The family of this 79-nucleotide RNA from Microcaecilia unicolor is "Small nucleolar RNA SNORD79". It scores 72 bits against the family's covariance model. Rfam classes the family as a C/D-box small nucleolar RNA. Pairs were carried over by alignment from the consensus structure, which was predicted with PFOLD. Its family is annotated with nucleolus and RNA processing in the Gene Ontology. The family has 28 seed sequences and 784 matches in Rfam 15.1. Rfam describes the family as follows. snoRNA U79 or Z22 is found in intron 7 of the gas5 gene in humans and is also present in mice.
[Rfam]
RNA sequence: UUCUGUUAAUGAUGAGUGAUCUUUAUCAAUGGGAAUCUCUCUGAAAAAGAAUGAGAGAAGAACUUACACUGAAACAGUA
Numbered sequence: 001u002u003c004u005g006u007u008a009a010u011g012a013u014g015a016g017u018g019a020u021c022u023u024u025a026u027c028a029a030u031g032g033g034a035a036u037c038u039c040u041c042u043g044a045a046a047a048a049g050a051a052u053g054a055g056a057g058a059a060g061a062a063c064u065u066a067c068a069c070u071g072a073a074a075c076a077g078u079a
Stems, first nucleotide, its partner, number of pairs: 001079001003077005
Dot-bracket structure: (.(((((.................................................................))))).)